msiK RNA: a 60-nucleotide sequence from Bifidobacterium coryneforme. The family's consensus secondary structure is taken from published work. Taxonomically the source falls in Bifidobacterium coryneforme (Bacteria, Actinomycetes, Bifidobacteriaceae, Bifidobacterium).
[Rfam]
RNA sequence: AAAAAUCAACCCUUCACUACGGAUCGUUCGGCACGUACCUGCCGAUGAAAGGAUGAACAA
Numbered sequence: 001a002a003a004a005a006u007c008a009a010c011c012c013u014u015c016a017c018u019a020c021g022g023a024u025c026g027u028u029c030g031g032c033a034c035g036u037a038c039c040u041g042c043c044g045a046u047g048a049a050a051g052g053a054u055g056a057a058c059a060a
Stems, first nucleotide, its partner, number of pairs: 010052002013049004028045006